Shown here is a 380-nucleotide sequence from Mycolicibacterium confluentis, a member of the family "Bacterial RNase P class A". By type it is a ribozyme. NCBI's taxonomy places the organism under Bacteria, Bacillati, Mycobacteriales, Mycobacteriaceae, Mycobacterium (subgen. Mycolicibacterium).

[Rfam]
RNA sequence: CGAGUUGGCUGGGCGGCCGCGGAGAAAUUCGAGGAAAGUCCGGACUUCACAGAGCAGGGUGAUUGCUAACGGCAAUCCGAGGUGACUCGCGGGAAAGUGCCACAGAGAACAGACCGCCAGAAAUGGUAAGGGUGAAACGGUGCGGUAAGAGCGCACCAGCAUUCCGGGUGACCGGAGUGGCUAGGUAAACCCCACCCGAAGCAAGGCCAAGAGGUCGUGCCCAGCACGACUGCGCAGGCGCUCGAGGGCUGCUCGCCCGAGCCUGCGGGUAGGCCGCUUGAGGUACCCGGCGACGGUGUGCCCAGAUGGAUGGUCGCCGCUGAUGCUCUUCCGCAACGGAGAGCUCAGGACAGAAUCCGGCUUACAGGCCAACUCGUUCG
Numbered sequence: 001c002g003a004g005u006u007g008g009c010u011g012g013g014c015g016g017c018c019g020c021g022g023a024g025a026a027a028u029u030c031g032a033g034g035a036a037a038g039u040c041c042g043g044a045c046u047u048c049a050c051a052g053a054g055c056a057g058g059g060u061g062a063u064u065g066c067u068a069a070c071g072g073c074a075a076u077c078c079g080a081g082g083u084g085a086c087u088c089g090c091g092g093g094a095a096a097g098u099g100c101c102a103c104a105g106a107g108a109a110c111a112g113a114c115c116g117c118c119a120g121a122a123a124u125g126g127u128a129a130g131g132g133u134g135a136a137a138c139g140g141u142g143c144g145g146u147a148a149g150a151g152c153g154c155a156c157c158a159g160c161a162u163u164c165c166g167g168g169u170g171a172c173c174g175g176a177g178u179g180g181c182u183a184g185g186u187a188a189a190c191c192c193c194a195c196c197c198g199a200a201g202c203a204a205g206g207c208c209a210a211g212a213g214g215u216c217g218u219g220c221c222c223a224g225c226a227c228g229a230c231u232g233c234g235c236a237g238g239c240g241c242u243c244g245a246g247g248g249c250u251g252c253u254c255g256c257c258c259g260a261g262c263c264u265g266c267g268g269g270u271a272g273g274c275c276g277c278u279u280g281a282g283g284u285a286c287c288c289g290g291c292g293a294c295g296g297u298g299u300g301c302c303c304a305g306a307u308g309g310a311u312g313g314u315c316g317c318c319g320c321u322g323a324u325g326c327u328c329u330u331c332c333g334c335a336a337c338g339g340a341g342a343g344c345u346c347a348g349g350a351c352a353g354a355a356u357c358c359g360g361c362u363u364a365c366a367g368g369c370c371a372a373c374u375c376g377u378u379c380g
Stems, first nucleotide, its partner, number of pairs: 001376010011365001012318007020031004036363003040360005045201004052254004057197005062076005077091001078089004092192002097190002099186003114131002116127004139157006159181001160179008205275004234266006246258004282301001287296003